[Rfam]
A member of the RNA family "mir-544 microRNA precursor family" from Puma concolor, 97 nucleotides long. The match comes from Rfam's covariance-model search (71 bits). For this family Rfam cites "Mammalian microRNAs: experimental evaluation of novel and previously annotated genes" (Chiang et al., Genes Dev, 2010).

RNA sequence: AUCACCUGGGGAGCUUGUUAAAAUGCAGAUUCUGAUUCGGCGGUCUGGGGUGGAGCCCGAGAGUCUGCAUUUCUAACGAGCUCUCGGGUGGUGUGGG
Numbered sequence: 001a002u003c004a005c006c007u008g009g010g011g012a013g014c015u016u017g018u019u020a021a022a023a024u025g026c027a028g029a030u031u032c033u034g035a036u037u038c039g040g041c042g043g044u045c046u047g048g049g050g051u052g053g054a055g056c057c058c059g060a061g062a063g064u065c066u067g068c069a070u071u072u073c074u075a076a077c078g079a080g081c082u083c084u085c086g087g088g089u090g091g092u093g094u095g096g097g
Base pairs, nucleotide, nucleotide: 003090004089005088009084010083011082014080015079016078017077018076019075020074021072022071023070025068026067027066028065029064031062032061033060
The family's consensus secondary structure was predicted with RNAalifold.